Shown here is a 76-nucleotide RNA, a member of the family "RT-6 RNA". Rfam's curators put it in the seed alignment. It is annotated as a small RNA. Pairs were carried over by alignment from the consensus structure, which is taken from published work.
[Rfam]
RNA sequence: UGCUUCAUACAAUUGGGUAUGGGGGAUGGAAAUUGUUGUCAACAGUCCUUGCGAAAUUUCUUCAAGAAUUUCUGCG
Numbered sequence: 001u002g003c004u005u006c007a008u009a010c011a012a013u014u015g016g017g018u019a020u021g022g023g024g025g026a027u028g029g030a031a032a033u034u035g036u037u038g039u040c041a042a043c044a045g046u047c048c049u050u051g052c053g054a055a056a057u058u059u060c061u062u063c064a065a066g067a068a069u070u071u072c073u074g075c076g
Stems, first nucleotide, its partner, number of pairs: 003024008054071002058068003